c-di-GMP-I-GGC riboswitch aptamer: a 74-nucleotide RNA sequence. The family's consensus secondary structure is taken from published work. It is one of the family's seed sequences.

RNA sequence: CAAGGUAAAGCCAAACUUGUCGUAAGGCAGGGACGGGAAGCUACGGGUCUCAACUGAUAGCCGAGCUACCUUGG
Numbered sequence: 001c002a003a004g005g006u007a008a009a010g011c012c013a014a015a016c017u018u019g020u021c022g023u024a025a026g027g028c029a030g031g032g033a034c035g036g037g038a039a040g041c042u043a044c045g046g047g048u049c050u051c052a053a054c055u056g057a058u059a060g061c062c063g064a065g066c067u068a069c070c071u072u073g074g
Stems, first nucleotide, its partner, number of pairs: 001074001003071002011036002016031006034060001039067004044063003047058003

Rfam 15.1 lists 1,298 matches to the family in 717 species.